RNA sequence: CCUCUCUCAGCUCCGCUUGAUCACACAGGCCUAGUGUGUGCUUGGCGUAUUUCCAGGGAGAGAGAGGAAGGCUCUCCUAAUGCACGACAGACUUGCCCACAGUGGCCUCUCUGUUCCUAGGAGUGCAACAUCU
Numbered sequence: 001c002c003u004c005u006c007u008c009a010g011c012u013c014c015g016c017u018u019g020a021u022c023a024c025a026c027a028g029g030c031c032u033a034g035u036g037u038g039u040g041c042u043u044g045g046c047g048u049a050u051u052u053c054c055a056g057g058g059a060g061a062g063a064g065a066g067g068a069a070g071g072c073u074c075u076c077c078u079a080a081u082g083c084a085c086g087a088c089a090g091a092c093u094u095g096c097c098c099a100c101a102g103u104g105g106c107c108u109c110u111c112u113g114u115u116c117c118u119a120g121g122a123g124u125g126c127a128a129c130a131u132c133u
Base pairs, nucleotide, nucleotide: 002066003065004064005063006062007061008060011058012057013056015054019043020042022040023039024038025037026036074123075122076121077120078119080118082116089112090111091110095106096105097104
RNA: Small nucleolar RNA SNORA64/SNORA10 family